[Rfam]
RNA sequence: GUUUGUUCUCGGGGCGGGGUGAAACUCCCCACCGGCGGUAUGAAGAGUGAUCUUCGAGCCCGCGAGCGCCUGUAACGGAAAGCCGAUUCGGCUGUUUGUUUCAGGGUCAGCAGAUCCGGUGAGAUGCCGGAGCCGACGGUUAAAGUCCGGAUGGAAGAGAGCGAAA
Numbered sequence: 001g002u003u004u005g006u007u008c009u010c011g012g013g014g015c016g017g018g019g020u021g022a023a024a025c026u027c028c029c030c031a032c033c034g035g036c037g038g039u040a041u042g043a044a045g046a047g048u049g050a051u052c053u054u055c056g057a058g059c060c061c062g063c064g065a066g067c068g069c070c071u072g073u074a075a076c077g078g079a080a081a082g083c084c085g086a087u088u089c090g091g092c093u094g095u096u097u098g099u100u101u102c103a104g105g106g107u108c109a110g111c112a113g114a115u116c117c118g119g120u121g122a123g124a125u126g127c128c129g130g131a132g133c134c135g136a137c138g139g140u141u142a143a144a145g146u147c148c149g150g151a152u153g154g155a156a157g158a159g160a161g162c163g164a165a166a
Base pairs, nucleotide, nucleotide: 003164004163005162006161007160008159009158010157017029018028019027031146032145033135034134035063036062037061038060058133059132066111067110115131116130117129118128119127137149138148139147
A member of the RNA family "FMN riboswitch aptamer (RFN element)" from Brucella rhizosphaerae, 166 nucleotides long. It scores 115 bits against the family's covariance model.